[Rfam]
RNA: Nitrogen stress-induced RNA 1
Organism: Calothrix sp. C42_A2020_038
RNA sequence: UAAUAGAUGCACCCUGAUUUACCUUUGACCCCAGUUACUUGUUAGCUGGGGUUUUAUUUU
Number, nucleotide and partner (000 for none) at each position: 001u000002a000003a000004u011005a000006g000007a000008u000009g000010c000011a004012c000013c000014c000015u000016g000017a000018u000019u000020u000021a000022c000023c000024u000025u000026u000027g000028a052029c051030c050031c049032c048033a047034g046035u045036u044037a043038c000039u000040u000041g000042u000043u037044a036045g035046c034047u033048g032049g031050g030051g029052u028053u000054u000055u000056a000057u000058u000059u000060u000